[Rfam]
RNA sequence: CUGUGUGGGGAUAAAAACACAUUCCGGUUGGUAGUCCGGAAGCGGCUCGACCGUCAGUAACCUGCCUCCUUGGUUGUCCCUUCCCCAUAGGAACCCA
Numbered sequence: 001c002u003g004u005g006u007g008g009g010g011a012u013a014a015a016a017a018c019a020c021a022u023u024c025c026g027g028u029u030g031g032u033a034g035u036c037c038g039g040a041a042g043c044g045g046c047u048c049g050a051c052c053g054u055c056a057g058u059a060a061c062c063u064g065c066c067u068c069c070u071u072g073g074u075u076g077u078c079c080c081u082u083c084c085c086c087a088u089a090g091g092a093a094c095c096c097a
Stems, first nucleotide, its partner, number of pairs: 004089008022041006042054004064074003

Notes:
Rfam assigns this 97-nucleotide RNA from Firmicutes bacterium CAG:114 to the family "azaaromatic riboswitch aptamer (yjdF RNA)". A search with the family's covariance model found it, with a score of 81 bits. The organism belongs to Bacillota, within Bacteria.